[Rfam]
RNA sequence: AUACGACAAUACUAAACCAUCUGUGAAGAUGGGGCAGAAGCCCAUAGGGUCUCAACGAGACAGCCGGGUUACCGAA
Dot-bracket structure: ...........((...((((((....))))))...))..(.((...(((((.......)))..)).)).)......
Numbered sequence: 001a002u003a004c005g006a007c008a009a010u011a012c013u014a015a016a017c018c019a020u021c022u023g024u025g026a027a028g029a030u031g032g033g034g035c036a037g038a039a040g041c042c043c044a045u046a047g048g049g050u051c052u053c054a055a056c057g058a059g060a061c062a063g064c065c066g067g068g069u070u071a072c073c074g075a076a
Stems, first nucleotide, its partner, number of pairs: 012037002017032006040070001042068002047065002049061003

Rfam assigns this 76-nucleotide sequence from a Geobacteraceae bacterium to the family "c-di-GMP-I riboswitch aptamer". The source organism's lineage runs through Bacteria, Pseudomonadati, Thermodesulfobacteriota, Desulfuromonadia and Geobacteraceae.